[Rfam]
RNA: SAM riboswitch aptamer (S box leader)
RNA sequence: CCACCAUCCAGAGCGGUCGAGAGUCCUGGCUCACUGACGCCGCAGCAACCCCCCUCGAGCGAGGGUGUGGGUGCUUCCGCCAGGCCCGAUGGAGU
Numbered sequence: 001c002c003a004c005c006a007u008c009c010a011g012a013g014c015g016g017u018c019g020a021g022a023g024u025c026c027u028g029g030c031u032c033a034c035u036g037a038c039g040c041c042g043c044a045g046c047a048a049c050c051c052c053c054c055u056c057g058a059g060c061g062a063g064g065g066u067g068u069g070g071g072u073g074c075u076u077c078c079g080c081c082a083g084g085c086c087c088g089a090u091g092g093a094g095u
Stems, first nucleotide, its partner, number of pairs: 002094001004092005013043005021032003026083004044075004049071002051067001053065002079087001